[Rfam]
RNA sequence: UGAUGCUGAUAAAUUUAUGCUUUUUCCUGUAUGGCGGAUCCCCCUAAGCGGCGGGGCUAAGCCAGUCAGCAAACCAUGUGGCAAAUAGCGGGUCAGGUUAUGGCUUUUCUGACUCACCGGGAGGCACCCGGCGCCAUGCGGAGCAGUCGGCCAGCGCAGGCUCCUGCCUGCGCUGCUGCCG
Number, nucleotide and partner (000 for none) at each position: 001u000002g000003a000004u000005g000006c000007u000008g000009a000010u000011a000012a000013a000014u000015u000016u000017a000018u000019g000020c000021u000022u000023u000024u000025u000026c000027c000028u000029g139030u138031a137032u136033g135034g134035c133036g132037g000038a000039u000040c000041c056042c055043c054044c053045u000046a000047a000048g000049c000050g000051g000052c000053g044054g043055g042056g041057c000058u000059a000060a000061g000062c000063c000064a000065g000066u000067c000068a000069g000070c000071a000072a000073a000074c000075c000076a000077u000078g000079u000080g000081g089082c088083a000084a000085a000086u000087a000088g082089c081090g115091g114092g113093u112094c000095a110096g109097g108098u000099u000100a000101u000102g000103g000104c000105u000106u000107u000108u097109c096110u095111g000112a093113c092114u091115c090116a000117c131118c130119g129120g128121g127122a000123g000124g000125c000126a000127c121128c120129c119130g118131g117132c036133g035134c034135c033136a032137u031138g030139c029140g000141g000142a000143g000144c000145a000146g000147u000148c000149g000150g000151c000152c175153a174154g173155c172156g171157c170158a169159g168160g167161c000162u000163c000164c000165u000166g000167c160168c159169u158170g157171c156172g155173c154174u153175g152176c000177u000178g000179c000180c000181g000
RNA: Gammaproteobacterial sRNA STnc100